[Rfam]
Nucleotides: 085
Base pairs, nucleotide, nucleotide: 001085002084003083004082
Number, partner (000 for none) and nucleotide at each position: 001085g002084g003083c004082c005000a006000g007000u008000g009000a010000u011000a012000u013000g014000a015000u016000c017000a018000a019000a020000u021000a022000u023000u024000u025000g026000c027000u028000a029000c030000u031000c032000u033000u034000g035000a036000u037000g038000g039000g040000u041000u042000u043000c044000a045000a046000g047000g048000a049000a050000u051000c052000c053000a054000u055000c056000u057000g058000a059000u060000g061000a062000u063000a064000g065000u066000a067000u068000c069000c070000a071000c072000c073000a074000a075000g076000a077000u078000u079000u080000g081000a082004g083003g084002c085001c

The family of this 85-nucleotide RNA sequence from Populus tomentosa is "Small nucleolar RNA SNORD24".
Gene Ontology terms of the family: RNA processing and nucleolus.
The base pairs follow the family's consensus structure, which was predicted with PFOLD.
The family has 14 seed sequences and 2,843 matches in Rfam 15.1.
The organism belongs to Populus, within Eukaryota.